[Rfam]
RNA sequence: ACCGGGCUUUGUAGCGAUUGCCUAUAACUCAAGUGAGGGUAUAAAAGGUGUUUGAACUGUGAUAUGGCUCGGCUUGAUUGGCCUUGUUGGCGCAUAAACCGGCUUGCCCAUUCCAAGUUGUGAGUUGGACCAUGUGGCUUAGGCGGAGGCUUGGCUCACUUGGUUCCUAAAGCAAGGGACACUGCGUUAGGCUGGCUUCACAGAGCUGCGAGAACUCUUCGCUCAUGACAGUGGAAGGAUAACGAGUCGGGGCUCCGAUAGGCUGUGUAAUCUACUGAGCCGUUUCAAAUGAACAAACAUCUUU
Numbered sequence: 001a002c003c004g005g006g007c008u009u010u011g012u013a014g015c016g017a018u019u020g021c022c023u024a025u026a027a028c029u030c031a032a033g034u035g036a037g038g039g040u041a042u043a044a045a046a047g048g049u050g051u052u053u054g055a056a057c058u059g060u061g062a063u064a065u066g067g068c069u070c071g072g073c074u075u076g077a078u079u080g081g082c083c084u085u086g087u088u089g090g091c092g093c094a095u096a097a098a099c100c101g102g103c104u105u106g107c108c109c110a111u112u113c114c115a116a117g118u119u120g121u122g123a124g125u126u127g128g129a130c131c132a133u134g135u136g137g138c139u140u141a142g143g144c145g146g147a148g149g150c151u152u153g154g155c156u157c158a159c160u161u162g163g164u165u166c167c168u169a170a171a172g173c174a175a176g177g178g179a180c181a182c183u184g185c186g187u188u189a190g191g192c193u194g195g196c197u198u199c200a201c202a203g204a205g206c207u208g209c210g211a212g213a214a215c216u217c218u219u220c221g222c223u224c225a226u227g228a229c230a231g232u233g234g235a236a237g238g239a240u241a242a243c244g245a246g247u248c249g250g251g252g253c254u255c256c257g258a259u260a261g262g263c264u265g266u267g268u269a270a271u272c273u274a275c276u277g278a279g280c281c282g283u284u285u286c287a288a289a290u291g292a293a294c295a296a297a298c299a300u301c302u303u304u
Base pairs, nucleotide, nucleotide: 001040002039003038004023005022006021007020010017028037029036030035044304045303046302047301048300049299050298051297052296053295054294057291060287061286064283065282066281067280068279072276074274076272077271078270079269080264081263082262083261084260087257089256090255092253095251099250100249101248102247103246104245105244106243108238109237111236112235113234114233115232117229118228119227120226121225122224123223124222125221127166128165129164130163131162132161134159135158136157137156139154140153141152142151143150144149167172174219175218176217177216178215183212185210186209187208192203193202194201
About this RNA:
The family of this 304-nucleotide sequence from Lactuca sativa is "Plant signal recognition particle RNA". It is annotated as a non-coding RNA gene. A search with the family's covariance model found it, with a score of 202 bits. The organism belongs to Lactuca, within Eukaryota.